[Rfam]
RNA sequence: UAGGUUUGUCCUAAGUCAAACUUCAUCAACUUUGACCAAGUCUAGAAAAAUACAGCAACAACUAUUCUAUACAACAUAUACACUAUUAACAUAUACUUCAUGGUGGAUUCAAUGGAACAAAUUUGGUAUUGUAAAUGUUAUUAUUUCUUUCUAUAAGUUUGGUCAAAGUUUACUAAGUUUGACUUAGGACAAACCUAA
Numbered sequence: 001u002a003g004g005u006u007u008g009u010c011c012u013a014a015g016u017c018a019a020a021c022u023u024c025a026u027c028a029a030c031u032u033u034g035a036c037c038a039a040g041u042c043u044a045g046a047a048a049a050a051u052a053c054a055g056c057a058a059c060a061a062c063u064a065u066u067c068u069a070u071a072c073a074a075c076a077u078a079u080a081c082a083c084u085a086u087u088a089a090c091a092u093a094u095a096c097u098u099c100a101u102g103g104u105g106g107a108u109u110c111a112a113u114g115g116a117a118c119a120a121a122u123u124u125g126g127u128a129u130u131g132u133a134a135a136u137g138u139u140a141u142u143a144u145u146u147c148u149u150u151c152u153a154u155a156a157g158u159u160u161g162g163u164c165a166a167a168g169u170u171u172a173c174u175a176a177g178u179u180u181g182a183c184u185u186a187g188g189a190c191a192a193a194c195c196u197a198a
Stems, first nucleotide, its partner, number of pairs: 005193005011187013026172001031167005043153006050146001054142002057139004063133003067126003071122001

MIR1435 microRNA precursor family: a 198-nucleotide sequence from Panicum virgatum. The family has 3 seed sequences and 1,765 matches in Rfam 15.1. A search with the family's covariance model found it, with a score of 96 bits.